[Rfam]
RNA sequence: UGGUGCCCGAACAGGGACCUGGACACGGGAGAAAAAGUGAGGAAGAAGGCACCAAAGUCGGCCGAAAGUGAAAGUGGAAGAAAUUCCUCCGGACGUCGUGGGAACCUGCCGCGUUGGAACCAAAGGUGAGUAAUAGUGUCUGAUUAUGGGACAAGAAUUAAGCCAGCACCAGAUUUAUGUAGGGCAGUUAAAAGAGGCCCUAAAAGCAUGAGGAGUAAGGGUUAAAAGUAAUGAUUUGUUUAAAUUUUUUGAUUUUGUAAAAGAUACCUGCCCUU
Dot-bracket structure: .....(((......(........)..)))........(.......).....................................(.(((...(.(..(((((.......)))))...)..)...))).).....(.((.((((....)))))).)....((.(((...............................)))..))......((((((((..((((((.......))))))......))))))))........((.(.(....).).))
Source information: The record is a 275-nucleotide RNA from Rhinopithecus roxellana, which matches "Mason-Pfizer monkey virus packaging signal" in Rfam. The base pairs follow the family's consensus structure, which was predicted with PFOLD. It scores 198 bits against the family's covariance model. Gene Ontology term of the family: viral genome packaging.